RNA sequence: GGGAGUAGAUAGGGCGCUGGUGUCCCUCCUGGACUUCAAAUCCAGUGGCAGGUGAGUUCCACCUGUGGUGGGUUCGAUUCCCACACACUCCC
Number, nucleotide and partner (000 for none) at each position: 001g092002g091003g090004a089005g088006u087007a000008g084009a000010u000011a027012g026013g025014g024015c000016g000017c022018u000019g000020g000021u000022g017023u000024c014025c013026c012027u011028c000029c045030u044031g043032g042033a041034c000035u000036u000037c000038a000039a000040a000041u033042c032043c031044a030045g029046u000047g000048g066049c065050a064051g063052g062053u000054g000055a000056g000057u000058u000059c000060c000061a000062c052063c051064u050065g049066u048067g000068g000069u083070g082071g081072g080073u000074u000075c000076g000077a000078u000079u000080c072081c071082c070083a069084c008085a000086c000087a006088c005089u004090c003091c002092c001

Background
The record is a 92-nucleotide RNA from Candidatus Psychracetigena formicireducens, which matches "Selenocysteine transfer RNA" in Rfam. Pairs were carried over by alignment from the consensus structure, which is taken from published work. It scores 69 bits against the family's covariance model. Rfam 15.1 lists 4,211 matches to the family in 3,344 species.